[Rfam]
RNA sequence: ACAAUAUAGGUUCUCCGAGCUCUGAUUAACCUAAACAUGUUUUUAGUGCACGGUUUGCAGGCCUUUAGGGUGCAGUAGGAAACUGUUGCGCCUCCCAUUGUGGAAAGGAGGAAAAAGUACCUGAUG
Numbered sequence: 001a002c003a004a005u006a007u008a009g010g011u012u013c014u015c016c017g018a019g020c021u022c023u024g025a026u027u028a029a030c031c032u033a034a035a036c037a038u039g040u041u042u043u044u045a046g047u048g049c050a051c052g053g054u055u056u057g058c059a060g061g062c063c064u065u066u067a068g069g070g071u072g073c074a075g076u077a078g079g080a081a082a083c084u085g086u087u088g089c090g091c092c093u094c095c096c097a098u099u100g101u102g103g104a105a106a107g108g109a110g111g112a113a114a115a116a117g118u119a120c121c122u123g124a125u126g
Stems, first nucleotide, its partner, number of pairs: 011112006019062002022060003028055004036048003068093011094103002